[Rfam]
Description: Bacterial large subunit ribosomal RNA: a 232-nucleotide part of an RNA from Parabacteroides chinchillae. The literature on the family includes a 2001 paper in Science by Yusupov et al., "Crystal structure of the ribosome at 5.5 A resolution". The source organism's lineage runs through Bacteria, Pseudomonadati, Bacteroidales, Tannerellaceae and Parabacteroides. Its family is annotated with structural constituent of ribosome and ribosome in the Gene Ontology. It scores 2761 bits against the family's covariance model.
RNA sequence: GAGUUACUUUCUCCGGCCAGGUUAAGUGGUUCAGCCACGGAGCCGAAGCGAAAGCGAGUCUUAACAGGGCGGUUUAGUCGGAGGGAGUAGACGCGAAACCAAGUGAUCUACCCAUGGUCAGGUUGAAGGUUAGGUAACACUAACUGGAGGACCGAAUCGUUAUACGUUGAAAAGUGUUCGAAUGAACUGUGGGUAGGGGUGAAAGGCUAAUCAAACUUGGAGAUAGCUCGUA
Numbered sequence: 001g002a003g004u005u006a007c008u009u010u011c012u013c014c015g016g017c018c019a020g021g022u023u024a025a026g027u028g029g030u031u032c033a034g035c036c037a038c039g040g041a042g043c044c045g046a047a048g049c050g051a052a053a054g055c056g057a058g059u060c061u062u063a064a065c066a067g068g069g070c071g072g073u074u075u076a077g078u079c080g081g082a083g084g085g086a087g088u089a090g091a092c093g094c095g096a097a098a099c100c101a102a103g104u105g106a107u108c109u110a111c112c113c114a115u116g117g118u119c120a121g122g123u124u125g126a127a128g129g130u131u132a133g134g135u136a137a138c139a140c141u142a143a144c145u146g147g148a149g150g151a152c153c154g155a156a157u158c159g160u161u162a163u164a165c166g167u168u169g170a171a172a173a174g175u176g177u178u179c180g181a182a183u184g185a186a187c188u189g190u191g192g193g194u195a196g197g198g199g200u201g202a203a204a205g206g207c208u209a210a211u212c213a214a215a216c217u218u219g220g221a222g223a224u225a226g227c228u229c230g231u232a
Base pairs, nucleotide, nucleotide: 005089006088007087008086009085010084011083012082013081014080015079016078017077020044021043022042023041026038027037028036048055049054058070059069060068061067092230093229095227099220100219101218102217103216104215108196109195110194111193112192113191114190115189116188117187118186119184121153122152123151124150128145129144130143131142132141133140157181158180159179162177163176164175165174198208199207200206